[Rfam]
RNA sequence: CUACGAUAAAGGCAAAACCGGGGUAACCCGGCGACGCAAAACCAGUGCCCAGGCAGAGAUGCGGGGGUCGAACGGUUACCGAA
Numbered sequence: 001c002u003a004c005g006a007u008a009a010a011g012g013c014a015a016a017a018c019c020g021g022g023g024u025a026a027c028c029c030g031g032c033g034a035c036g037c038a039a040a041a042c043c044a045g046u047g048c049c050c051a052g053g054c055a056g057a058g059a060u061g062c063g064g065g066g067g068u069c070g071a072a073c074g075g076u077u078a079c080c081g082a083a
Stems, first nucleotide, its partner, number of pairs: 012037002018031005040077004045073002049067002053062003